[Rfam]
The family of this 79-nucleotide sequence from Microcaecilia unicolor is "Mammalian CPEB3 ribozyme". It scores 38 bits against the family's covariance model. The base pairs follow the family's consensus structure, which is taken from published work. Taxonomically the source falls in Microcaecilia (Eukaryota, Chordata, Gnathostomata, Dipnotetrapodomorpha).
RNA sequence: ACUCUAAUUUCUGGGGUUCUAGCAAAAGCAUUUUUACUGCAGCCCUAGUCAAGUUCCUACAAAAUUUGUGAAUUCUGCU
Numbered sequence: 001a002c003u004c005u006a007a008u009u010u011c012u013g014g015g016g017u018u019c020u021a022g023c024a025a026a027a028g029c030a031u032u033u034u035u036a037c038u039g040c041a042g043c044c045c046u047a048g049u050c051a052a053g054u055u056c057c058u059a060c061a062a063a064a065u066u067u068g069u070g071a072a073u074u075c076u077g078c079u
Stems, first nucleotide, its partner, number of pairs: 013046006021079004026074002028040003050068006